[Rfam]
The record is a 131-nucleotide RNA from Sciurus vulgaris, which matches "Small nucleolar RNA SNORA61" in Rfam.
RNA sequence: ACCCUCUGGUUUCCUUUCCUGUCAAAUCUGAUCACUAGUCUUGGUAGCUGUGAAAGGAGGGAACCCAAACUCAAACUGGUCUCACAGUGUUGUGGUUUGGCAUAUAGUAUGUGGGCUAGUGUCAAACAGAU
Numbered sequence: 001a002c003c004c005u006c007u008g009g010u011u012u013c014c015u016u017u018c019c020u021g022u023c024a025a026a027u028c029u030g031a032u033c034a035c036u037a038g039u040c041u042u043g044g045u046a047g048c049u050g051u052g053a054a055a056g057g058a059g060g061g062a063a064c065c066c067a068a069a070c071u072c073a074a075a076c077u078g079g080u081c082u083c084a085c086a087g088u089g090u091u092g093u094g095g096u097u098u099g100g101c102a103u104a105u106a107g108u109a110u111g112u113g114g115g116c117u118a119g120u121g122u123c124a125a126a127c128a129g130a131u
Stems, first nucleotide, its partner, number of pairs: 003060005019047005026039002076119007091109003
Dot-bracket structure: ..(((((...........(((((..((..........))...)))))........)))))...............(((((((........(((.............)))...)))))))............
ACA61 is a member of the H/ACA class of snoRNA that guide the sites of modification of uridines to pseudouridines.